[Rfam]
RNA: Small nucleolar RNA SNORA43
Organism: Myotis lucifugus
RNA sequence: CAGGUGCUGGACCUGCGGCACCACAGACGCUGCCGGGCUGCGCCUGUGACGUCGGGGCCCAGAGGAAGUGGCCAGUUCUACCCUCAGUGCUCAGAACAGUGGGCACUAGGAUGGUUUGUAGCCUGACAUUC
Numbered sequence: 001c002a003g004g005u006g007c008u009g010g011a012c013c014u015g016c017g018g019c020a021c022c023a024c025a026g027a028c029g030c031u032g033c034c035g036g037g038c039u040g041c042g043c044c045u046g047u048g049a050c051g052u053c054g055g056g057g058c059c060c061a062g063a064g065g066a067a068g069u070g071g072c073c074a075g076u077u078c079u080a081c082c083c084u085c086a087g088u089g090c091u092c093a094g095a096a097c098a099g100u101g102g103g104c105a106c107u108a109g110g111a112u113g114g115u116u117u118g119u120a121g122c123c124u125g126a127c128a129u130u131c
Stems, first nucleotide, its partner, number of pairs: 003059003007055004023047004070123003078114003083109001088105006